MIR2587 microRNA precursor family: a 93-nucleotide RNA from Medicago truncatula.
RNA sequence: GUGUCAUGGUCAUUGUUGGUCACUCAUACGACCCCUGCAAUUGCAUUGCAGCUUAUGUUGGGGUCUAUAACGAUCAACAACGACCCUUGACAU
Numbered sequence: 001g002u003g004u005c006a007u008g009g010u011c012a013u014u015g016u017u018g019g020u021c022a023c024u025c026a027u028a029c030g031a032c033c034c035c036u037g038c039a040a041u042u043g044c045a046u047u048g049c050a051g052c053u054u055a056u057g058u059u060g061g062g063g064u065c066u067a068u069a070a071c072g073a074u075c076a077a078c079a080a081c082g083a084c085c086c087u088u089g090a091c092a093u
Stems, first nucleotide, its partner, number of pairs: 001093006008085004013080009024069001026068003030065006037058003043052001